[Rfam]
RNA sequence: UUUUUUACAAAUCAGAAUGAUCUGAAAUUUGGAGCGUGUAUUCAUAAAAAAUAGGCGAAGCUACGAAAAAUAUCAAAAAAAUAUUUUACAUGAAAUAAAUUGACCAAAAUAUCCCCAAAAAAUUUCAGGGGUAUUUUGGUCAAUUUAUUUUUUGCUACUCACUUUUUAUAUAUUUUUAUUAGGUGCACACUAAGAUGCACACACGCUCCAAGUUUUAGAUCAUUCCGAUUUGUAGAAAA
Numbered sequence: 001u002u003u004u005u006u007a008c009a010a011a012u013c014a015g016a017a018u019g020a021u022c023u024g025a026a027a028u029u030u031g032g033a034g035c036g037u038g039u040a041u042u043c044a045u046a047a048a049a050a051a052u053a054g055g056c057g058a059a060g061c062u063a064c065g066a067a068a069a070a071u072a073u074c075a076a077a078a079a080a081a082u083a084u085u086u087u088a089c090a091u092g093a094a095a096u097a098a099a100u101u102g103a104c105c106a107a108a109a110u111a112u113c114c115c116c117a118a119a120a121a122a123u124u125u126c127a128g129g130g131g132u133a134u135u136u137u138g139g140u141c142a143a144u145u146u147a148u149u150u151u152u153u154g155c156u157a158c159u160c161a162c163u164u165u166u167u168a169u170a171u172a173u174u175u176u177u178a179u180u181a182g183g184u185g186c187a188c189a190c191u192a193a194g195a196u197g198c199a200c201a202c203a204c205g206c207u208c209c210a211a212g213u214u215u216u217a218g219a220u221c222a223u224u225c226c227g228a229u230u231u232g233u234a235g236a237a238a239a
Base pairs, nucleotide, nucleotide: 001239002238003237004236005235006234007233008232009231010230011229012228013227015225016224017223018222019221020220021219022218023217024216025215026214027213028212029211030210031209032208033207034206036204037203038202039201041199043197044196045195061182062181063180066177067176068175069174070173071172072171073170076167077166078165079164080163096147097146098145099144100143101142102141103140104139105138106137107136108135109134110133111132112131113130114129117124118123
Background
Rfam assigns this 239-nucleotide RNA from Amborella trichopoda to the family "MIR8562 microRNA precursor family". A search with the family's covariance model found it, with a score of 230 bits. The family's consensus secondary structure was predicted with RNAalifold.